[Rfam]
The family of this 75-nucleotide sequence from Streptomyces aurantiacus is "ASpks TB sRNA". Rfam classes the family as an antisense RNA. The base pairs follow the family's consensus structure, which is taken from published work.

RNA sequence: CUUCACCGAGCCGAGCCACAGCGGCCGGUCAUCGGGUCGUCCCUGUCCAUACGUGGCGAGCAGUGCCUGCGCCUC
Numbered sequence: 001c002u003u004c005a006c007c008g009a010g011c012c013g014a015g016c017c018a019c020a021g022c023g024g025c026c027g028g029u030c031a032u033c034g035g036g037u038c039g040u041c042c043c044u045g046u047c048c049a050u051a052c053g054u055g056g057c058g059a060g061c062a063g064u065g066c067c068u069g070c071g072c073c074u075c
Base pairs, nucleotide, nucleotide: 015025016024017023033069038065039064043060044059047056048055049054